[Rfam]
RNA sequence: UUCUUAUCAAGAGCAGGCAGAGGGACGAGCCCGAUGAAGCCCGGCAACCGACUUAUAAAGCACGGUGCUAAUUCUUGCAGCUAGCGGCUGAGAGAUAAGAU
Numbered sequence: 001u002u003c004u005u006a007u008c009a010a011g012a013g014c015a016g017g018c019a020g021a022g023g024g025a026c027g028a029g030c031c032c033g034a035u036g037a038a039g040c041c042c043g044g045c046a047a048c049c050g051a052c053u054u055a056u057a058a059a060g061c062a063c064g065g066u067g068c069u070a071a072u073u074c075u076u077g078c079a080g081c082u083a084g085c086g087g088c089u090g091a092g093a094g095a096u097a098a099g100a101u
Stems, first nucleotide, its partner, number of pairs: 002100007013042001016041003022032003026077004043069004048065002050061001052060002073093001078090005

Rfam assigns this 101-nucleotide sequence from Bacillus subtilis to the family "SAM riboswitch aptamer (S box leader)". The source organism's lineage runs through Bacteria, Caryophanales, Bacillaceae, Bacillus and Bacillus subtilis subsp. subtilis. The sequence is in the family's curated seed alignment. Its family is annotated with regulation of gene expression in the Gene Ontology.